This 218-nucleotide sequence from Streptomyces flaveus belongs to the Rfam family "Actinobacteria sRNA Ms_IGR-5". For this family Rfam cites "Identification of small RNAs in Mycobacterium smegmatis using heterologous Hfq" (Li et al., RNA, 2013). It scores 91 bits against the family's covariance model. Taxonomically the source falls in Streptomyces (Bacteria, Actinomycetota, Actinomycetes, Kitasatosporales). Rfam classes the family as a small RNA. The pairing is the family consensus, mapped onto this sequence.
[Rfam]
RNA sequence: ACUUCGGAAAGGAGGUGGUUCGGCAGAUGUAUGAAAACCGGACAGGAGAGGUGGCUGCGGGCUAGCGGCCCGUCACCACACCCAGUGCGGUGCCGGACCAGCGCGGGUUAGAGACGCGCAGCCGGCCCAAUCUCAAGCAGUCACCCGACCCGCGAGCUCGCCGGUAAGUCCGGCCGGCUCCCUCCUCGGAGGGGACCAGAGCUCGCGGGUCGUCUGCG
Dot-bracket structure: ..............(((((..................................))))).((((.((.((.(.((......................................)).).)).)).))))..................(((((((((((((.((((((.......)))))).....................)))))))))))))......